[Rfam]
Nucleotides: 305
Base pairs, nucleotide, nucleotide: 001304002303003302004301180213181212182211183210184209185208186207187206189203190202191201192200193198
Number, partner (000 for none) and nucleotide at each position: 001304u002303g003302g004301a005000a006000a007000u008000g009000a010000u011000g012000a013000a014000a015000u016000a017000g018000a019000g020000a021000u022000a023000a024000u025000u026000g027000g028000g029000u030000g031000u032000u033000g034000a035000a036000u037000g038000u039000u040000g041000u042000g043000u044000g045000a046000c047000u048000g049000g050000a051000a052000a053000a054000u055000u056000u057000u058000a059000a060000u061000g062000u063000g064000u065000g066000a067000g068000u069000u070000u071000a072000g073000u074000a075000a076000g077000u078000u079000u080000a081000a082000u083000a084000u085000u086000u087000u088000a089000u090000a091000g092000a093000u094000a095000a096000u097000a098000g099000a100000a101000u102000g103000u104000g105000u106000g107000u108000g109000u110000g111000u112000g113000u114000g115000u116000g117000u118000u119000c120000a121000u122000g123000g124000a125000g126000g127000c128000u129000a130000u131000u132000g133000a134000a135000a136000g137000g138000g139000g140000g141000c142000a143000c144000u145000g146000a147000u148000u149000g150000g151000u152000g153000a154000u155000g156000c157000u158000g159000a160000u161000a162000u163000u164000g165000g166000a167000g168000u169000g170000c171000a172000u173000c174000u175000g176000a177000g178000g179000c180213u181212g182211u183210u184209g185208u186207a187206g188000a189203a190202a191201u192200a193198c194000a195000u196000g197000g198193g199000c200192u201191g202190u203189u204000g205000a206187u207186u208185a209184c210183a211182a212181c213180a214000u215000u216000g217000c218000c219000g220000a221000u222000g223000a224000u225000u226000a227000u228000a229000a230000c231000c232000c233000a234000a235000g236000a237000a238000c239000a240000g241000c242000u243000c244000a245000c246000c247000u248000a249000a250000g251000u252000a253000g254000c255000c256000u257000a258000g259000c260000a261000c262000c263000c264000u265000a266000a267000a268000a269000u270000c271000u272000c273000u274000a275000a276000c277000a278000g279000g280000u281000u282000c283000a284000u285000g286000a287000a288000a289000c290000c291000u292000g293000u294000g295000a296000u297000c298000u299000g300000a301004u302003c303002c304001a305000a